The record is a 60-nucleotide sequence from Asticcacaulis benevestitus, which matches "Caulobacter sRNA CC0196" in Rfam. On this family, see Landt et al., Mol Microbiol 2008: "Small non-coding RNAs in Caulobacter crescentus". A search with the family's covariance model found it, with a score of 36 bits.

RNA sequence: UUACUUAAGACACCCACCAUCACAAAACUUUAAAGCCCGAAAGCGCAAUUUCGGGCUUUU
Numbered sequence: 001u002u003a004c005u006u007a008a009g010a011c012a013c014c015c016a017c018c019a020u021c022a023c024a025a026a027a028c029u030u031u032a033a034a035g036c037c038c039g040a041a042a043g044c045g046c047a048a049u050u051u052c053g054g055g056c057u058u059u060u
Stems, first nucleotide, its partner, number of pairs: 033058009